[Rfam]
RNA sequence: AAAAAGAUAAAAUGUGGGUUCCUGUGUCAACGUUUGACUGUCCGUUUUAUAUAAAUUUUUUUUAUAAUUAGUAUUUUCAUUGUUGAUAGAUGAUAAAACAUGAUUAAUACUUUAUGCGUGACUUGUCUUUUUAAUUUUUUUUCAUAAUUUUUUUAAAUAAGACGGACGGUCAAACGUUAGACACGGAAACCAGAGUCUGUCUUUUUU
Numbered sequence: 001a002a003a004a005a006g007a008u009a010a011a012a013u014g015u016g017g018g019u020u021c022c023u024g025u026g027u028c029a030a031c032g033u034u035u036g037a038c039u040g041u042c043c044g045u046u047u048u049a050u051a052u053a054a055a056u057u058u059u060u061u062u063u064a065u066a067a068u069u070a071g072u073a074u075u076u077u078c079a080u081u082g083u084u085g086a087u088a089g090a091u092g093a094u095a096a097a098a099c100a101u102g103a104u105u106a107a108u109a110c111u112u113u114a115u116g117c118g119u120g121a122c123u124u125g126u127c128u129u130u131u132u133a134a135u136u137u138u139u140u141u142u143c144a145u146a147a148u149u150u151u152u153u154u155a156a157a158u159a160a161g162a163c164g165g166a167c168g169g170u171c172a173a174a175c176g177u178u179a180g181a182c183a184c185g186g187a188a189a190c191c192a193g194a195g196u197c198u199g200u201c202u203u204u205u206u207u
Stems, first nucleotide, its partner, number of pairs: 027181002029178003033174018
The record is a 207-nucleotide RNA sequence from Oryza rufipogon, which matches "MIR812 microRNA precursor family" in Rfam. Its family is annotated with RISC complex and miRNA-mediated post-transcriptional gene silencing in the Gene Ontology. Taxonomically the source falls in Oryza (Eukaryota, Tracheophyta, Spermatophyta, Oryzoideae). Rfam 15.1 lists 57,451 matches to the family in 24 species. The family's consensus secondary structure was predicted with RNAalifold.